The family of this 404-nucleotide sequence from Colletotrichum fioriniae is "Nuclear RNase P". It is annotated as a ribozyme. The base pairs follow the family's consensus structure, which is taken from published work. Taxonomically the source falls in Colletotrichum fioriniae (Eukaryota, Fungi, Ascomycota, Colletotrichum acutatum species complex).
Nucleotides: 404
Base pairs, nucleotide, nucleotide: 001404002403003402004401008397009396012336013335014334015333016332017331018330022083023082024081025080035064036063037062038061039060040059093388094387095386096385097384101313102312104310154165155164156163157162168183169182170181171180172179185309186308187307188306189305190304207293208292337376338375339374341372342371
Number, partner (000 for none) and nucleotide at each position: 001404u002403c003402c004401u005000c006000u007000u008397c009396a010000a011000c012336g013335c014334u015333g016332c017331g018330u019000u020000u021000c022083u023082a024081u025080g026000c027000u028000a029000c030000a031000a032000a033000c034000g035064g036063a037062g038061a039060g040059a041000u042000g043000u044000a045000c046000g047000c048000g049000c050000a051000a052000g053000c054000g055000g056000a057000a058000g059040u060039c061038u062037c063036u064035c065000a066000u067000u068000c069000u070000a071000c072000c073000a074000a075000a076000c077000u078000g079000g080025c081024a082023u083022a084000u085000g086000a087000g088000a089000a090000a091000u092000u093388c094387g095386g096385a097384g098000u099000a100000a101313c102312u103000u104310c105000u106000u107000c108000a109000c110000a111000c112000c113000a114000c115000u116000c117000a118000c119000c120000c121000a122000a123000u124000g125000u126000c127000g128000c129000c130000u131000g132000c133000c134000u135000a136000g137000u138000g139000c140000g141000g142000g143000a144000u145000g146000a147000c148000g149000g150000g151000u152000c153000u154165g155164c156163c157162c158000g159000c160000g161000a162157g163156g164155g165154u166000c167000u168183g169182g170181c171180g172179u173000g174000a175000c176000u177000u178000c179172a180171c181170g182169u183168c184000u185309g186308c187307a188306a189305u190304u191000g192000g193000c194000a195000u196000c197000a198000g199000a200000a201000a202000a203000g204000c205000a206000g207293g208292g209000c210000c211000c212000g213000g214000g215000c216000c217000g218000u219000g220000c221000u222000c223000a224000u225000g226000u227000a228000u229000a230000c231000c232000c233000u234000g235000a236000u237000u238000c239000c240000c241000u242000c243000u244000g245000g246000g247000a248000a249000g250000a251000g252000g253000g254000g255000a256000a257000a258000g259000a260000u261000g262000a263000g264000c265000u266000c267000u268000g269000g270000a271000c272000u273000c274000g275000g276000u277000g278000u279000c280000c281000c282000u283000a284000u285000g286000g287000g288000a289000g290000a291000g292208c293207c294000g295000u296000u297000g298000c299000g300000a301000a302000a303000a304190g305189a306188u307187u308186g309185u310104g311000c312102a313101g314000a315000g316000c317000a318000c319000u320000u321000g322000a323000g324000u325000g326000c327000g328000a329000u330018a331017c332016g333015c334014a335013g336012c337376g338375u339374c340000u341372g342371g343000a344000u345000c346000c347000u348000g349000g350000c351000u352000g353000g354000c355000u356000u357000c358000g359000g360000c361000u362000g363000a364000c365000c366000a367000g368000g369000c370000a371342c372341u373000u374339g375338a376337c377000a378000a379000u380000u381000c382000a383000a384097u385096u386095c387094c388093g389000a390000u391000c392000a393000u394000u395000c396009u397008g398000u399000u400000g401004a402003g403002g404001a